Shown here is a 143-nucleotide RNA sequence from Dactylosporangium siamense, a member of the family "c-di-AMP riboswitch aptamer (ydaO/yuaA leader)". Taxonomically the source falls in Dactylosporangium (Bacteria, Actinomycetota, Micromonosporales, Micromonosporaceae). A reference for the family is Barrick et al. (2004), "New RNA motifs suggest an expanded scope for riboswitches in bacterial genetic control", Proc Natl Acad Sci U S A.
[Rfam]
RNA sequence: GCGGCGGAUCCGCUGAGUCGCGUCCGCGCGAGCCGGGGAACCGAGCACCACCGGGGUGAAUCCGCGGGGCCCGCGCCCCGAGGUAGGGCGAUCUUCCCGCCCGAACCCGUCAGCUAACCCGGUAGGCGGCACCGGAAGGAGCA
Numbered sequence: 001g002c003g004g005c006g007g008a009u010c011c012g013c014u015g016a017g018u019c020g021c022g023u024c025c026g027c028g029c030g031a032g033c034c035g036g037g038g039a040a041c042c043g044a045g046c047a048c049c050a051c052c053g054g055g056g057u058g059a060a061u062c063c064g065c066g067g068g069g070c071c072c073g074c075g076c077c078c079c080g081a082g083g084u085a086g087g088g089c090g091a092u093c094u095u096c097c098c099g100c101c102c103g104a105a106c107c108c109g110u111c112a113g114c115u116a117a118c119c120c121g122g123u124a125g126g127c128g129g130c131a132c133c134g135g136a137a138g139g140a141g142c143a
Base pairs, nucleotide, nucleotide: 011128012127013126014125018031019030020029032123033122034121035120036119037118042053043052054108055107056106062083063082065080066079067078068077069076070075086102087101088100089099